[Rfam]
RNA sequence: CCGGGCGCCGUGUUCGGGUCCGGUGGACAUGGAGGGCGCCGGCUCUUCCCGGCGCAUCUCAUGCCCAGAUCGCUUCCCUAGGAGGAUUUGGAAAUGAGAA
Number, nucleotide and partner (000 for none) at each position: 001c023002c022003g021004g020005g019006c018007g000008c017009c016010g000011u000012g000013u000014u000015c000016g009017g008018g006019u005020c004021c003022g002023g001024u000025g000026g000027a000028c000029a000030u000031g000032g000033a057034g000035g000036g055037c054038g053039c052040c051041g050042g049043c000044u000045c000046u000047u000048c000049c042050c041051g040052g039053c038054g037055c036056a000057u033058c098059u097060c096061a095062u094063g000064c000065c091066c090067a089068g088069a087070u086071c085072g000073c084074u083075u082076c000077c000078c000079u000080a000081g000082g075083a074084g073085g071086a070087u069088u068089u067090g066091g065092a000093a000094a062095u061096g060097a059098g058099a000100a000